[Rfam]
RNA: ZMP/ZTP riboswitch aptamer (pfl RNA motif)
Organism: Polaromonas vacuolata
RNA sequence: UAAUAGGUGCGCAACUGGCGAUAGGCUUGGCAGCAAAAGCUGUUAAGUUAAGGUGGGACACCACUGGGAAGCGCACCGCUUUAAUGGCUGUUUUGGCACAUUAAAGUGAUCAGCCGUUCGCCUGGGCAGCCCUU
Dot-bracket structure: ..(..(((((((..(([[[[[...............................((((....))))..))..)))))))..)..............................(.(((..]]]]]..))).).....